[Rfam]
RNA sequence: AGCCUAAACUAGCAAGUAAUUGCUGGCAUGGUGAAAAGUCCAAUCAGACAUAAAAAACCCAUCAUGGGGUUGUCUGAUUGGCCAUAUCGGGAAACCGGUAUGAAUGGCUUCGGCCAU
Numbered sequence: 001a002g003c004c005u006a007a008a009c010u011a012g013c014a015a016g017u018a019a020u021u022g023c024u025g026g027c028a029u030g031g032u033g034a035a036a037a038g039u040c041c042a043a044u045c046a047g048a049c050a051u052a053a054a055a056a057a058c059c060c061a062u063c064a065u066g067g068g069g070u071u072g073u074c075u076g077a078u079u080g081g082c083c084a085u086a087u088c089g090g091g092a093a094a095c096c097g098g099u100a101u102g103a104a105u106g107g108c109u110u111c112g113g114c115c116a117u
Stems, first nucleotide, its partner, number of pairs: 002032003009026007040081011057070004083102008104117005

LOOT RNA: a 117-nucleotide sequence.
It is annotated as a small RNA.
Rfam's curators put it in the seed alignment.
The family's consensus secondary structure is taken from published work.